Rfam assigns this 67-nucleotide RNA to the family "L31-Actinobacteria ribosomal protein leader". It is annotated as a cis-regulatory leader. It is one of the family's seed sequences.
RNA sequence: GCGGUUCCGGUUCACGCCAUACAGGGCCGGCCCGUCCCAUGACGGGUGACCUGGCGACCCGGCGACC
Numbered sequence: 001g002c003g004g005u006u007c008c009g010g011u012u013c014a015c016g017c018c019a020u021a022c023a024g025g026g027c028c029g030g031c032c033c034g035u036c037c038c039a040u041g042a043c044g045g046g047u048g049a050c051c052u053g054g055c056g057a058c059c060c061g062g063c064g065a066c067c
Stems, first nucleotide, its partner, number of pairs: 003067003007062004015056005